[Rfam]
This 84-nucleotide RNA from Marinobacter persicus belongs to the Rfam family "Group II catalytic intron D1-D4-1". From the family's description: Group II introns are found in rRNA, tRNA and mRNA of organelles in fungi, plants and protists, and also in mRNA in bacteria. NCBI's taxonomy places the organism under Bacteria, Pseudomonadati, Pseudomonadota, Marinobacteraceae, Marinobacter.

Nucleotides: 084
Stems, first nucleotide, its partner, number of pairs: 001027002004023001007020005044051002053084003062077003
Number, partner (000 for none) and nucleotide at each position: 001027g002026c003000c004023u005000c006000a007020u008019g009018c010017c011016u012000g013000a014000a015000a016011g017010g018009g019008c020007g021000a022000c023004g024000u025000g026002g027001c028000a029000a030000c031000a032000c033000g034000g035000a036000g037000c038000g039000a040000g041000a042000a043000g044051u045050c046000a047000g048000c049000a050045g051044a052000g053084g054083c055082c056000a057000u058000a059000g060000u061000a062077g063076c064075c065000g066000c067000u068000u069000g070000g071000u072000c073000a074000g075064g076063g077062c078000g079000a080000a081000g082055g083054g084053c